[Rfam]
RNA sequence: AAGUGACAAGAGUGAUGAUUCAAUUAGAUGUGUGAAAGGGAAAAUUUUCCUUUCAUGAACAUAAAUGUUUUGAGGCAUAAUUUUGUCUGACUUGUCACCA
Number, nucleotide and partner (000 for none) at each position: 001a000002a000003g098004u097005g096006a095007c094008a093009a092010g091011a000012g000013u000014g000015a000016u000017g000018a000019u000020u000021c000022a000023a000024u000025u000026a000027g000028a000029u000030g000031u000032g000033u000034g000035a000036a000037a000038g000039g000040g000041a000042a000043a000044a000045u000046u000047u000048u000049c000050c000051u000052u000053u000054c000055a000056u000057g000058a000059a000060c000061a000062u000063a000064a000065a000066u000067g000068u000069u000070u000071u000072g000073a000074g000075g000076c000077a000078u000079a000080a000081u000082u000083u000084u000085g000086u000087c000088u000089g000090a000091c010092u009093u008094g007095u006096c005097a004098c003099c000100a000
This 100-nucleotide RNA from Aquilegia coerulea belongs to the Rfam family "Small nucleolar RNA Z266".
For this family Rfam cites "The high diversity of snoRNAs in plants: identification and comparative study of 120 snoRNA genes from Oryza sativa" (Chen et al., Nucleic Acids Res, 2003).
Taxonomically the source falls in Aquilegia (Eukaryota, Euphyllophyta, Ranunculaceae, Thalictroideae).